A member of the RNA family "7SK RNA" from Ramphastos sulfuratus, 329 nucleotides long. For this family Rfam cites "Transcription: surprising role for an elusive small nuclear RNA" (Blencowe, Curr Biol, 2002). 7SK was discovered as an abundant small nuclear RNA in the mid-70s but a possible function has only recently been suggested. Two independent studies have found that 7SK RNA binds the CDK9/cyclin T complex (known as elongation factor P-TEFb). P-TEFb activates transcription by phosphorylating the C-terminal domain of RNA polymerase II. This process is negatively regulated by the 7SK RNP. The secondary structure of 7SK RNA shown here was proposed by Wasserman and Steitz on the basis of chemical modification and enzymatic cleavage experiments. Clan: 7SK clan. Taxonomically the source falls in Ramphastos (Eukaryota, Metazoa, Bilateria, Telluraves).
RNA sequence: GGAUGUGAUGAUGAUCUGGUAGUAACAUUUGCUGUGCCAUUUAUCACUAGGGCUGGUUGGGCUGAUCUGGCUGGCUAGAUGAGUCUCCCCUUCCUCUCCCACUGCCCUAUGGCUGCCCUCCUGAAGCUGUGUGCUCAGUCAAAGAGGAUGACCUUCCCCAAUAGAGAUGGGACCAUUCCUUCAGUCAAGGGUAUAUGGUGGCUGUGCUUCCCUGCUAGAGCCUCCAAACAAGCUCAAGGUGCAUUUGUAGGAGAAGGUAGGGUAGUCAAGCUUCACAGAUAGCAGACACAUCCAAGUGAGACCCUGCAUGGGGUAGUCUGCCAUUGUGU
Numbered sequence: 001g002g003a004u005g006u007g008a009u010g011a012u013g014a015u016c017u018g019g020u021a022g023u024a025a026c027a028u029u030u031g032c033u034g035u036g037c038c039a040u041u042u043a044u045c046a047c048u049a050g051g052g053c054u055g056g057u058u059g060g061g062c063u064g065a066u067c068u069g070g071c072u073g074g075c076u077a078g079a080u081g082a083g084u085c086u087c088c089c090c091u092u093c094c095u096c097u098c099c100c101a102c103u104g105c106c107c108u109a110u111g112g113c114u115g116c117c118c119u120c121c122u123g124a125a126g127c128u129g130u131g132u133g134c135u136c137a138g139u140c141a142a143a144g145a146g147g148a149u150g151a152c153c154u155u156c157c158c159c160a161a162u163a164g165a166g167a168u169g170g171g172a173c174c175a176u177u178c179c180u181u182c183a184g185u186c187a188a189g190g191g192u193a194u195a196u197g198g199u200g201g202c203u204g205u206g207c208u209u210c211c212c213u214g215c216u217a218g219a220g221c222c223u224c225c226a227a228a229c230a231a232g233c234u235c236a237a238g239g240u241g242c243a244u245u246u247g248u249a250g251g252a253g254a255a256g257g258u259a260g261g262g263u264a265g266u267c268a269a270g271c272u273u274c275a276c277a278g279a280u281a282g283c284a285g286a287c288a289c290a291u292c293c294a295a296g297u298g299a300g301a302c303c304c305u306g307c308a309u310g311g312g313g314u315a316g317u318c319u320g321c322c323a324u325u326g327u328g329u
Stems, first nucleotide, its partner, number of pairs: 001108002005102003010097001013093002018090002025086001027084005033078001035074001037070003043066003047061002116170002118166003121138004126134002139161001146157003201271003207265002210262006222253004228248005294329001296327001298324001300322001302320001304316004